Description: Rfam assigns this 75-nucleotide sequence from Halcyon senegalensis to the family "mir-460 microRNA precursor family". Lineage of the source: Eukaryota > Metazoa > Amniota > Dinosauria > Halcyon. For this family Rfam cites "The developmental miRNA profiles of zebrafish as determined by small RNA cloning" (Chen et al., Genes Dev, 2005).
RNA sequence: CUCUAUAUUGUCCUCAUUGUACAUGCUGUGUGUAUUUUUCACAUACACAGCGCAUGCAAUGUGGACAUAAUGGAG
Numbered sequence: 001c002u003c004u005a006u007a008u009u010g011u012c013c014u015c016a017u018u019g020u021a022c023a024u025g026c027u028g029u030g031u032g033u034a035u036u037u038u039u040c041a042c043a044u045a046c047a048c049a050g051c052g053c054a055u056g057c058a059a060u061g062u063g064g065a066c067a068u069a070a071u072g073g074a075g
Stems, first nucleotide, its partner, number of pairs: 012064002015061007024052001026050006